[Rfam]
RNA sequence: GUUUGGAAGUGAGAAUCUUCCAUGCCGUUUGACCAAGGUUUCCUGGGCAAGGUUCGUCCACCCAGGGUUAGUCAGGACCUAAGGCGAGGCCGAAAGGCGUAGUCGAUGGACAACAGGUUGAUAUUCCUGUACCACCAUAUUGAGCGAUGGAGUGACGGAGAAGGCUAGUAUAUCCCGGUUAUUGGAUUCCGGGCUAAGCACAAAGAGGGUAAGGUUGGAAAAUCCACCUUGCAUUAACCUUGAAGUGUGAUGGGGAGUGAACGGUUCGCCUAGUAGCGAAGUAUAUGACGCCACGCUUCCAAGAAAAGCUUCUAGCACUAUCUUUAUGGUGCCUGUACCUAGAACGAACACACGUGGUCAAGGAGAGAAUCCUAAGGCAAG
Numbered sequence: 001g002u003u004u005g006g007a008a009g010u011g012a013g014a015a016u017c018u019u020c021c022a023u024g025c026c027g028u029u030u031g032a033c034c035a036a037g038g039u040u041u042c043c044u045g046g047g048c049a050a051g052g053u054u055c056g057u058c059c060a061c062c063c064a065g066g067g068u069u070a071g072u073c074a075g076g077a078c079c080u081a082a083g084g085c086g087a088g089g090c091c092g093a094a095a096g097g098c099g100u101a102g103u104c105g106a107u108g109g110a111c112a113a114c115a116g117g118u119u120g121a122u123a124u125u126c127c128u129g130u131a132c133c134a135c136c137a138u139a140u141u142g143a144g145c146g147a148u149g150g151a152g153u154g155a156c157g158g159a160g161a162a163g164g165c166u167a168g169u170a171u172a173u174c175c176c177g178g179u180u181a182u183u184g185g186a187u188u189c190c191g192g193g194c195u196a197a198g199c200a201c202a203a204a205g206a207g208g209g210u211a212a213g214g215u216u217g218g219a220a221a222a223u224c225c226a227c228c229u230u231g232c233a234u235u236a237a238c239c240u241u242g243a244a245g246u247g248u249g250a251u252g253g254g255g256a257g258u259g260a261a262c263g264g265u266u267c268g269c270c271u272a273g274u275a276g277c278g279a280a281g282u283a284u285a286u287g288a289c290g291c292c293a294c295g296c297u298u299c300c301a302a303g304a305a306a307a308g309c310u311u312c313u314a315g316c317a318c319u320a321u322c323u324u325u326a327u328g329g330u331g332c333c334u335g336u337a338c339c340u341a342g343a344a345c346g347a348a349c350a351c352a353c354g355u356g357g358u359c360a361a362g363g364a365g366a367g368a369a370u371c372c373u374a375a376g377g378c379a380a381g
Stems, first nucleotide, its partner, number of pairs: 004022006023379004031359004037339002042066006051059002073335004078109002083104003087100001089098003113130005133331007142322002144316002149312005157299004163292003168286005174193005194253002198248004205241003209232007217225002257277002260274001345354002361373004
Dot-bracket structure: ...((((((.......))))))((((....((((..((...((((((...((.....)).))))))......((((.((...(((.(.(((....))).).)))...))...(((((........)))))..(((((((..((((...(((((...((((..(((..(((((.(((((..........)))))((..((((...(((.(((((((.((.....)))))))))......)))...))))...))...((.(.............).))....)))))...)))...))))........)))))..))....))..)))))))))))..)).....((......)).)))).((((.....))))..))))..
A member of the RNA family "Bacterial large subunit ribosomal RNA" from Spiroplasma eriocheiris, 381 nucleotides of a longer RNA. Rfam links the family to the GO terms ribosome and structural constituent of ribosome. The literature on the family includes a 2001 paper in Science by Yusupov et al., "Crystal structure of the ribosome at 5.5 A resolution". Pairs were carried over by alignment from the consensus structure, which is taken from published work. A search with the family's covariance model found it, with a score of 2922 bits.